[Rfam]
RNA sequence: AGCAAGAGAACAAACAUAGACAGGGAAUGGGCAGAGCAUGGAUGGAACCAUCGACAGGAUUGGAGCCUGUUGUGGCUCUACUCAUGCACUGCCUCUUCCCUGGCUGUGCCUCUCUCUUCUUU
Dot-bracket structure: ................(((.(((((((.((((((.((((((...((..............................))...)))))).)))))).))))))).)))................

The record is a 122-nucleotide RNA from Carya illinoinensis, which matches "MIR408 microRNA precursor family" in Rfam. Gene Ontology terms of the family: RISC complex and miRNA-mediated post-transcriptional gene silencing. Lineage of the source: Eukaryota > Viridiplantae > Euphyllophyta > Pentapetalae > Carya. Rfam 15.1 lists 299 matches to the family in 186 species. A reference for the family is Mica et al. (2009), "High throughput approaches reveal splicing of primary microRNA transcripts and tissue specific expression of mature microRNAs in Vitis vinifera", BMC Genomics. The base pairs follow the family's consensus structure, which was predicted with WAR.